[Rfam]
RNA sequence: UUGUCAUAAUUCACCUCUCCAGUAGGUGUUGAUUGAAAGUGCCGGGCUGGUUGUGGCCAGCCCGGUGCGCCU
Numbered sequence: 001u002u003g004u005c006a007u008a009a010u011u012c013a014c015c016u017c018u019c020c021a022g023u024a025g026g027u028g029u030u031g032a033u034u035g036a037a038a039g040u041g042c043c044g045g046g047c048u049g050g051u052u053g054u055g056g057c058c059a060g061c062c063c064g065g066u067g068c069g070c071c072u
Stems, first nucleotide, its partner, number of pairs: 004036003012028005039068012
Dot-bracket structure: ...(((.....(((((.......))))).....)))..((((((((((((......))))))))))))....
A member of the RNA family "Plasmid transferred anti-sense RNA" from Shigella flexneri, 72 nucleotides long. It is one of the family's seed sequences. The base pairs follow the family's consensus structure, which is taken from published work. Taxonomically the source falls in Shigella flexneri 2a (Bacteria, Gammaproteobacteria, Enterobacterales, Shigella).